[Rfam]
RNA: mir-252 microRNA precursor family
Organism: Ixodes scapularis
RNA sequence: AAGUCCUUUAAGUAGUAGUGCCGCAGGUAAGGGCUUGGCACUGGUACCUGCACACAACUGCUGACUGAUGAAA
Numbered sequence: 001a002a003g004u005c006c007u008u009u010a011a012g013u014a015g016u017a018g019u020g021c022c023g024c025a026g027g028u029a030a031g032g033g034c035u036u037g038g039c040a041c042u043g044g045u046a047c048c049u050g051c052a053c054a055c056a057a058c059u060g061c062u063g064a065c066u067g068a069u070g071a072a073a
Base pairs, nucleotide, nucleotide: 004070007067009064011062012061013060014059015058016057018055023051024050025049026048027047028046029045